[Rfam]
RNA sequence: UGUCUCCUCCAUGUCUCCUCCUGAUGUGGAUUCAGCCCGCCCAUCGUGGCGGGCUUUUUGUU
Numbered sequence: 001u002g003u004c005u006c007c008u009c010c011a012u013g014u015c016u017c018c019u020c021c022u023g024a025u026g027u028g029g030a031u032u033c034a035g036c037c038c039g040c041c042c043a044u045c046g047u048g049g050c051g052g053g054c055u056u057u058u059u060g061u062u
Stems, first nucleotide, its partner, number of pairs: 008030008034055008
A member of the RNA family "Betaproteobacteria toxic small RNA" from Paraburkholderia saeva, 62 nucleotides long.
The base pairs follow the family's consensus structure, which was predicted with WAR.
A reference for the family is Sass et al. (2017), "Identification of small RNAs abundant in Burkholderia cenocepacia biofilms reveal putative regulators with a potential role in carbon and iron metabolism", Sci Rep.
The organism belongs to Paraburkholderia, within Bacteria.
Rfam describes the family as follows. Overexpression in amino aid rich medium attenuates growth, suggesting role in repressing amino acid intake and metabolism.